Rhizobiales sRNA Atu_At1: a 113-nucleotide RNA from Rugositalea oryzae.
RNA sequence: GCGAGCCGGGUGACAACCGGACACAACGGGGACUGAUGGACGCAGUUAUUUUUCCGGUUUCUUGCUGCGACACCAACGCAUCGGUACGCGUGGACAUCUAACCUGUUCUCGGC
Dot-bracket structure: .....((((.((.(.....).)).((((((....((((..((((((.................))))))..(((........))).........))))...)))))).)))).
It is annotated as a small RNA.